[Rfam]
A member of the RNA family "ZMP/ZTP riboswitch aptamer (pfl RNA motif)" from Lachnospiraceae bacterium NE2001, 111 nucleotides long. Gene Ontology terms of the family: regulation of purine nucleotide biosynthetic process and one-carbon metabolic process.

RNA sequence: UAGUUACCGUGUGACUGACGGAUUAAAGUGGAGUUUACCACAGGGAGCACGGGCUGAAGUCAGCAUAUUGACUUCAUUUGUGGUGAUUAGCCGGCCGUCUGGGUGAGAGAA
Number, nucleotide and partner (000 for none) at each position: 001u000002a000003g000004u000005u000006a000007c052008c051009g050010u049011g048012u047013g000014a000015c044016u043017g099018a098019c097020g096021g095022a000023u000024u000025a000026a000027a000028g041029u040030g039031g038032a000033g000034u000035u000036u000037a000038c031039c030040a029041c028042a000043g016044g015045g000046a000047g012048c011049a010050c009051g008052g007053g000054c000055u000056g000057a000058a000059g000060u000061c000062a000063g000064c000065a000066u000067a000068u000069u000070g000071a000072c000073u000074u000075c000076a000077u000078u000079u000080g000081u000082g000083g000084u000085g000086a000087u000088u106089a000090g104091c103092c102093g000094g000095c021096c020097g019098u018099c017100u000101g000102g092103g091104u090105g000106a088107g000108a000109g000110a000111a000